[Rfam]
RNA sequence: GGUCUUUCUUUUGUGCUUGAUCUAACCAUGUGGUUGCACGGUAUGAGUAAAGCAUGGUUCUGUCAAGCACCAUGGAAUGUCU
Numbered sequence: 001g002g003u004c005u006u007u008c009u010u011u012u013g014u015g016c017u018u019g020a021u022c023u024a025a026c027c028a029u030g031u032g033g034u035u036g037c038a039c040g041g042u043a044u045g046a047g048u049a050a051a052g053c054a055u056g057g058u059u060c061u062g063u064c065a066a067g068c069a070c071c072a073u074g075g076a077a078u079g080u081c082u
Stems, first nucleotide, its partner, number of pairs: 001082002004079001006077004013070007024059008